[Rfam]
Record summary:
This 79-nucleotide RNA from Cicer arietinum belongs to the Rfam family "Small nucleolar RNA R12". About the family: snoR12 is a C/D box small nucleolar RNA, which acts as a methylation guide for 25S ribosomal RNA in plants. snoR12 has been alternatively named snoZ44 in Arabidopsis and snoZ131 in rice. The literature on the family includes a 2003 paper in Nucleic Acids Res by Chen et al., "The high diversity of snoRNAs in plants: identification and comparative study of 120 snoRNA genes from Oryza sativa". NCBI's taxonomy places the organism under Eukaryota, eudicotyledons, Gunneridae, Pentapetalae, Cicer.

RNA sequence: UGUUGAAGGAUGAUAAAUUUGACGGAAUAUCAUUGAUAUUAUUCAUAUAUGAUAUUAAAAUCAGCUACUUCUGACCACA
Numbered sequence: 001u002g003u004u005g006a007a008g009g010a011u012g013a014u015a016a017a018u019u020u021g022a023c024g025g026a027a028u029a030u031c032a033u034u035g036a037u038a039u040u041a042u043u044c045a046u047a048u049a050u051g052a053u054a055u056u057a058a059a060a061u062c063a064g065c066u067a068c069u070u071c072u073g074a075c076c077a078c079a
Stems, first nucleotide, its partner, number of pairs: 001079003005075001